[Rfam]
RNA sequence: AAUGGCCCUGCCCUUGAAAUGGGUGAUGCAGGCACCCAUAUGAGCUACAGAAAUUCGGCUCCAUCUUUGACCACGGAUGUACUGGCACUGGUGUUGAGCUGAAUUCGGAAAGGUCGGGAAUUCCCGGCCUUUUUUAUU
Numbered sequence: 001a002a003u004g005g006c007c008c009u010g011c012c013c014u015u016g017a018a019a020u021g022g023g024u025g026a027u028g029c030a031g032g033c034a035c036c037c038a039u040a041u042g043a044g045c046u047a048c049a050g051a052a053a054u055u056c057g058g059c060u061c062c063a064u065c066u067u068u069g070a071c072c073a074c075g076g077a078u079g080u081a082c083u084g085g086c087a088c089u090g091g092u093g094u095u096g097a098g099c100u101g102a103a104u105u106c107g108g109a110a111a112g113g114u115c116g117g118g119a120a121u122u123c124c125c126g127g128c129c130u131u132u133u134u135u136a137u138u
Stems, first nucleotide, its partner, number of pairs: 003047004007042001009040001021037005053104007062093004068087002071085003105136001107134011

This 138-nucleotide RNA from Phyllobacterium myrsinacearum belongs to the Rfam family "Alphaproteobacterial sRNA ar35". The match comes from Rfam's covariance-model search (65 bits). The literature on the family includes a 2012 paper in RNA Biol by del Val et al., "A survey of sRNA families in alpha-proteobacteria". The source organism's lineage runs through Bacteria, Pseudomonadati, Pseudomonadota, Hyphomicrobiales and Phyllobacterium. The family's RNA type in Rfam is small RNA. The pairing is the family consensus, mapped onto this sequence.